[Rfam]
RNA sequence: UCACAAGUUCAAGACCAUAGCAGAAGCACUCAUGGUGCAGCCAUAUCAGAGUCCAAAGAAUCUGCAAAUUCUGCU
Numbered sequence: 001u002c003a004c005a006a007g008u009u010c011a012a013g014a015c016c017a018u019a020g021c022a023g024a025a026g027c028a029c030u031c032a033u034g035g036u037g038c039a040g041c042c043a044u045a046u047c048a049g050a051g052u053c054c055a056a057a058g059a060a061u062c063u064g065c066a067a068a069u070u071c072u073g074c075u
Base pairs, nucleotide, nucleotide: 013042015040019075020074021073022072023071024070025069026038027037028036047064048063049062050061052059053058
Dot-bracket structure: ............[.[...((((((((((.......))).].]....((((.((....)).))))....)))))))
This 75-nucleotide sequence from Alligator sinensis belongs to the Rfam family "Mammalian CPEB3 ribozyme". It scores 41 bits against the family's covariance model. The source organism's lineage runs through Eukaryota, Craniata, Dipnotetrapodomorpha, Sauria and Alligator.